[Rfam]
Small nucleolar RNA SNORA55: a 133-nucleotide sequence from Erinaceus europaeus.
RNA sequence: GCACCUAAAUCUUUCCCUUUCCUUGUUUCUUCACGUAGGUGUGGGGACAAAUGGUGCUUCAGUUUGAUCAGAAGAAAUCCAGACAGAUUGUUUUCCAUUUAUCUGGAGACCUCUCUACAAUUUGGCCACACCU
Numbered sequence: 001g002c003a004c005c006u007a008a009a010u011c012u013u014u015c016c017c018u019u020u021c022c023u024u025g026u027u028u029c030u031u032c033a034c035g036u037a038g039g040u041g042u043g044g045g046g047a048c049a050a051a052u053g054g055u056g057c058u059u060c061a062g063u064u065u066g067a068u069c070a071g072a073a074g075a076a077a078u079c080c081a082g083a084c085a086g087a088u089u090g091u092u093u094u095c096c097a098u099u100u101a102u103c104u105g106g107a108g109a110c111c112u113c114u115c116u117a118c119a120a121u122u123u124g125g126c127c128a129c130a131c132c133u
Stems, first nucleotide, its partner, number of pairs: 001057005013047005019041001021039002069125001071123003081114003086111001088109001096106001

Gene Ontology terms of the family: nucleolus and RNA processing. The match comes from Rfam's covariance-model search (94 bits). From the family's description: ACA55 is a member of the H/ACA class of snoRNA that guide the sites of modification of uridines to pseudouridines. Pairs were carried over by alignment from the consensus structure, which was predicted with PFOLD.